[Rfam]
RNA: mir-135 microRNA precursor family
Organism: Pan paniscus
RNA sequence: GCCUCGCUGUUCUCUAUGGCUUUUUAUUCCUAUGUGAUUCUACUGCUCACUCAUAUAGGGAUUGGAGCCGUGGCGCACGGCGGGGA
Numbered sequence: 001g002c003c004u005c006g007c008u009g010u011u012c013u014c015u016a017u018g019g020c021u022u023u024u025u026a027u028u029c030c031u032a033u034g035u036g037a038u039u040c041u042a043c044u045g046c047u048c049a050c051u052c053a054u055a056u057a058g059g060g061a062u063u064g065g066a067g068c069c070g071u072g073g074c075g076c077a078c079g080g081c082g083g084g085g086a
Stems, first nucleotide, its partner, number of pairs: 002085009012075001014073010026062012